[Rfam]
RNA sequence: UCCCCGCUUUCCCUCCCUGAGCGGGGCCUUUCAAAAAGGCUUCGGGGCAUAGGUUAACCCCUUUUUCCUAUGCCCCCUUUUAU
Numbered sequence: 001u002c003c004c005c006g007c008u009u010u011c012c013c014u015c016c017c018u019g020a021g022c023g024g025g026g027c028c029u030u031u032c033a034a035a036a037a038g039g040c041u042u043c044g045g046g047g048c049a050u051a052g053g054u055u056a057a058c059c060c061c062u063u064u065u066u067c068c069u070a071u072g073c074c075c076c077c078u079u080u081u082a083u
Base pairs, nucleotide, nucleotide: 003025004024005023006022007021008020026040027039028038029037030036045075046074047073048072049071050070051069052068

A member of the RNA family "Burkholderia RNA 7 (anti-hemB)" from Betaproteobacteria bacterium UKL13-2, 83 nucleotides long. The family's RNA type in Rfam is small RNA. Rfam describes the family as follows. This RNA motif was identified by computational search in b-proteobacteria Burkholderia. Co-purified with Hfq, expression confirmed by Northern blot. Rfam links the family to the GO terms bacterial biofilm matrix and protein binding. The source organism's lineage runs through Bacteria, Pseudomonadati, Pseudomonadota and Betaproteobacteria.